[Rfam]
RNA sequence: ACAACAACAAUAACAAGCUGAACCCUAGAAAAUAAAAACAACACGUAACGACUCCAGCACAACAAAAACAAAAUCGCGGAGGCGCAGCUAACUGAUUCUUUUGGAGAAGAGUAGUAGUCGGGAGCAGUCCCGCAACCAGUCAGAGAACAAUAAAACUGCCCGAAGGCAGCGCCGGAACUGGUUGGAUCGCAAGAUCACCGCUCACUCAGCGACCAAAGCAAUCCGUUUGCUCUUACAAGUCCCGACAUGGGAUACGCCCCAAGGCAACUGGCCUUGAGGGACGGGUCAACAAACAAAAACAACAAGCCCGGCAUCAUAAUAAAAACAAAGCACGCACCUACUUUGGGGGGGAGCCUCGGCUCCCCCAGUAGCUUCAACCCCGCCGUUACCCUCUCCGCUGUA
Number, nucleotide and partner (000 for none) at each position: 001a000002c000003a000004a000005c000006a000007a000008c000009a000010a000011u000012a000013a000014c000015a000016a000017g000018c000019u000020g000021a000022a000023c000024c000025c000026u000027a000028g000029a000030a000031a000032a000033u000034a000035a000036a000037a000038a000039c000040a000041a000042c000043a000044c000045g000046u000047a000048a000049c084050g083051a000052c081053u080054c079055c078056a000057g000058c000059a000060c000061a000062a000063c000064a000065a000066a000067a000068a000069c000070a000071a000072a000073a000074u000075c000076g000077c000078g055079g054080a053081g052082g000083c050084g049085c000086a000087g000088c000089u000090a000091a000092c000093u000094g000095a000096u000097u000098c000099u218100u217101u216102u215103g214104g000105a000106g000107a000108a000109g000110a000111g000112u000113a000114g210115u209116a000117g000118u000119c000120g000121g000122g000123a000124g000125c000126a000127g000128u000129c000130c000131c000132g000133c184134a183135a182136c181137c180138a179139g178140u000141c000142a000143g000144a000145g000146a000147a000148c000149a000150a000151u000152a000153a000154a000155a000156c169157u168158g167159c166160c165161c000162g000163a000164a000165g160166g159167c158168a157169g156170c000171g000172c000173c000174g000175g000176a000177a000178c139179u138180g137181g136182u135183u134184g133185g000186a000187u000188c000189g000190c000191a000192a000193g000194a000195u000196c000197a000198c000199c000200g000201c000202u000203c000204a000205c000206u000207c000208a000209g115210c114211g000212a000213c000214c103215a102216a101217a100218g099219c000220a000221a000222u000223c000224c000225g000226u000227u000228u000229g000230c000231u000232c000233u000234u000235a000236c000237a000238a000239g253240u252241c251242c250243c000244g000245a000246c000247a000248u000249g000250g242251g241252a240253u239254a000255c000256g000257c000258c000259c000260c000261a000262a000263g000264g000265c000266a000267a000268c000269u000270g000271g000272c000273c000274u000275u000276g000277a000278g384279g383280g000281a000282c000283g379284g309285g308286u000287c306288a000289a000290c000291a000292a000293a000294c000295a000296a000297a000298a000299a000300c000301a000302a000303c000304a000305a000306g287307c000308c285309c284310g000311g000312c000313a000314u000315c000316a000317u000318a000319a000320u000321a000322a000323a000324a000325a000326c000327a000328a374329a373330g372331c371332a000333c000334g000335c000336a000337c000338c000339u000340a000341c000342u000343u000344u000345g000346g369347g366348g365349g364350g363351g362352a361353g360354c359355c000356u000357c000358g000359g354360c353361u352362c351363c350364c349365c348366c347367a000368g000369u346370a000371g331372c330373u329374u328375c000376a000377a000378c000379c283380c000381c000382g000383c279384c278385g000386u000387u000388a000389c000390c000391c000392u000393c000394u000395c000396c000397g000398c000399u000400g000401u000402a000